[Rfam]
RNA sequence: AUGUGCCUGGCUCCCUGUAUGCCACUUGGUGGCACUAAUUCGAUAGACGCAUUUGUUGAAUCGAGUGGCGUAACGGGAGUCAAGCACGU
Numbered sequence: 001a002u003g004u005g006c007c008u009g010g011c012u013c014c015c016u017g018u019a020u021g022c023c024a025c026u027u028g029g030u031g032g033c034a035c036u037a038a039u040u041c042g043a044u045a046g047a048c049g050c051a052u053u054u055g056u057u058g059a060a061u062c063g064a065g066u067g068g069c070g071u072a073a074c075g076g077g078a079g080u081c082a083a084g085c086a087c088g089u
Stems, first nucleotide, its partner, number of pairs: 001089006008082007018072007027063003

The family of this 89-nucleotide sequence from Salvia splendens is "mir-160 microRNA precursor family".
Its family is annotated with RISC complex and miRNA-mediated post-transcriptional gene silencing in the Gene Ontology.
The family's consensus secondary structure was predicted with PFOLD.